RNA sequence: GUGGUCGAGAGGCGCUGCGACGGCCCCAGCCAAGAGGGCCGCCACGCUCGGCCAGGCGACCUACCUUGACCUCAAGGGCGCCUCCUGUCA
Numbered sequence: 001g002u003g004g005u006c007g008a009g010a011g012g013c014g015c016u017g018c019g020a021c022g023g024c025c026c027c028a029g030c031c032a033a034g035a036g037g038g039c040c041g042c043c044a045c046g047c048u049c050g051g052c053c054a055g056g057c058g059a060c061c062u063a064c065c066u067u068g069a070c071c072u073c074a075a076g077g078g079c080g081c082c083u084c085c086u087g088u089c090a
Base pairs, nucleotide, nucleotide: 002054003053004052005051006050007049008048021041022040023039024038025037026036